[Rfam]
RNA sequence: UGGCAUAUUAAGCCGUCCAGUCUCGCUGCGGUACGGUUCUGGUGUGCCAUGGCUGCAGACAGUGACUCUGUGGUUGUGUAUGUGGCCAGCUGGGAGGUGCUGGCUGCUUUUAAGGGACCCGCUGAGACGACA
Numbered sequence: 001u002g003g004c005a006u007a008u009u010a011a012g013c014c015g016u017c018c019a020g021u022c023u024c025g026c027u028g029c030g031g032u033a034c035g036g037u038u039c040u041g042g043u044g045u046g047c048c049a050u051g052g053c054u055g056c057a058g059a060c061a062g063u064g065a066c067u068c069u070g071u072g073g074u075u076g077u078g079u080a081u082g083u084g085g086c087c088a089g090c091u092g093g094g095a096g097g098u099g100c101u102g103g104c105u106g107c108u109u110u111u112a113a114g115g116g117a118c119c120c121g122c123u124g125a126g127a128c129g130a131c132a
Stems, first nucleotide, its partner, number of pairs: 002048004017042003023036003072119003083106006
RNA: Small nucleolar RNA SNORA70